[Rfam]
RNA sequence: CGUCAGACAUCUCGGGGAUCAUCGUGUCACAAGAUACCAUAGUGCACUUGUGACAGAUUGAUAACUGAAAGGUCUGGGAG
Number, nucleotide and partner (000 for none) at each position: 001c000002g000003u077004c076005a075006g074007a073008c072009a000010u000011c000012u068013c067014g066015g065016g000017g000018a062019u061020c060021a059022u000023c000024g000025u055026g054027u053028c052029a051030c050031a049032a048033g047034a000035u000036a000037c000038c000039a000040u000041a000042g000043u000044g000045c000046a000047c033048u032049u031050g030051u029052g028053a027054c026055a025056g000057a000058u000059u021060g020061a019062u018063a000064a000065c015066u014067g013068a012069a000070a000071g000072g008073u007074c006075u005076g004077g003078g000079a000080g000
mir-542 microRNA precursor family: an 80-nucleotide RNA from Dipodomys ordii. Gene Ontology terms of the family: RISC complex and miRNA-mediated post-transcriptional gene silencing. Taxonomically the source falls in Dipodomys (Eukaryota, Gnathostomata, Dipnotetrapodomorpha, Theria). A reference for the family is Jin et al. (2009), "Characterization of bovine miRNAs by sequencing and bioinformatics analysis", BMC Mol Biol.